This 179-nucleotide sequence from Desulfitobacterium dichloroeliminans belongs to the Rfam family "6S / SsrS RNA".
Nucleotides: 179
Stems, first nucleotide, its partner, number of pairs: 005174006012167004017163003031150004035145006053126003057122003067115006080103002085099004
Number, partner (000 for none) and nucleotide at each position: 001000u002000g003000u004000a005174u006173c007172c008171u009170g010169c011000g012167u013166u014165g015164u016000u017163c018162g019161u020000a021000g022000a023000a024000u025000a026000u027000c028000u029000u030000g031150g032149u033148u034147u035145u036144g037143a038142u039141c040140c041000u042000a043000u044000u045000u046000a047000u048000g049000a050000c051000a052000c053126g054125g055124g056000a057122g058121c059120u060000g061000u062000c063000g064000u065000g066000a067115u068114g069113a070112a071111u072110c073000c074000u075000g076000u077000a078000c079000a080103u081102c082000a083000g084000g085099c086098c087097c088096c089000a090000c091000u092000u093000g094000u095000a096088g097087g098086g099085g100000a101000a102081g103080g104000u105000g106000g107000a108000a109000a110072g111071a112070u113069u114068u115067a116000u117000c118000c119000g120059g121058g122057u123000a124055c125054c126053c127000a128000c129000c130000u131000g132000c133000g134000a135000g136000a137000g138000c139000a140040g141039g142038g143037u144036c145035a146000g147034a148033a149032a150031c151000c152000u153000g154000g155000a156000g157000u158000u159000u160000u161019a162018c163017g164015g165014c166013a167012a168000g169010g170009c171008g172007g173006g174005g175000a176000u177000g178000g179000u
The base pairs follow the family's consensus structure, which is taken from published work. NCBI's taxonomy places the organism under Bacteria, Bacillota, Clostridia, Desulfitobacterium, Desulfitobacterium dichloroeliminans. It scores 76 bits against the family's covariance model.